[Rfam]
RNA: Listeria sRNA sbrA
RNA sequence: GUACAUCUAGAUCCAUACCCCUAAAACUCCCUAGAUGUCUCGGAUAGCGGAAUAACGCUAUCCCUUUUUU
Numbered sequence: 001g002u003a004c005a006u007c008u009a010g011a012u013c014c015a016u017a018c019c020c021c022u023a024a025a026a027c028u029c030c031c032u033a034g035a036u037g038u039c040u041c042g043g044a045u046a047g048c049g050g051a052a053u054a055a056c057g058c059u060a061u062c063c064c065u066u067u068u069u070u
Stems, first nucleotide, its partner, number of pairs: 004037006042063008